[Rfam]
The family of this 69-nucleotide sequence from Azoarcus indigens is "SAH (S-adenosyl-L-homocysteine) riboswitch aptamer". The base pairs follow the family's consensus structure, which is taken from published work. It scores 59 bits against the family's covariance model. The organism belongs to Azoarcus, within Bacteria.

RNA sequence: UCUGCCAAGGAGCGCUGCGACCCGGAGACCGGGCCAGGCUUGGCAACCGAACAACGGCGCUCGCAAACC
Numbered sequence: 001u002c003u004g005c006c007a008a009g010g011a012g013c014g015c016u017g018c019g020a021c022c023c024g025g026a027g028a029c030c031g032g033g034c035c036a037g038g039c040u041u042g043g044c045a046a047c048c049g050a051a052c053a054a055c056g057g058c059g060c061u062c063g064c065a066a067a068c069c
Stems, first nucleotide, its partner, number of pairs: 003045006021033005